This 157-nucleotide sequence from Coffea arabica belongs to the Rfam family "Small nucleolar RNA snoR145". The base pairs follow the family's consensus structure, which was predicted with mfold. Its family is annotated with RNA processing and nucleolus in the Gene Ontology. The literature on the family includes a 2009 paper in Nucleic Acids Res by Chen and Wu, "Mining small RNA sequencing data: a new approach to identify small nucleolar RNAs in Arabidopsis".
RNA sequence: UUGUGAAGGUCCCAGCGGAGGGGUAAAGAACUCUGCAAAUUGAGGCCUCUCUAACGAGUUGAUUCAAAACCUUCGCAAAUUUACUUAUUGGCUGAAUCGUAGGAUGCUCCAAAUGAUUCUCUAUUUUGGUGCUUCUGGAACCCUCAGCUAUAUAUAU
Numbered sequence: 001u002u003g004u005g006a007a008g009g010u011c012c013c014a015g016c017g018g019a020g021g022g023g024u025a026a027a028g029a030a031c032u033c034u035g036c037a038a039a040u041u042g043a044g045g046c047c048u049c050u051c052u053a054a055c056g057a058g059u060u061g062a063u064u065c066a067a068a069a070c071c072u073u074c075g076c077a078a079a080u081u082u083a084c085u086u087a088u089u090g091g092c093u094g095a096a097u098c099g100u101a102g103g104a105u106g107c108u109c110c111a112a113a114u115g116a117u118u119c120u121c122u123a124u125u126u127u128g129g130u131g132c133u134u135c136u137g138g139a140a141c142c143c144u145c146a147g148c149u150a151u152a153u154a155u156a157u
Stems, first nucleotide, its partner, number of pairs: 003076007011020001013018001026050001031044003035040001091148005103135002106132002109129005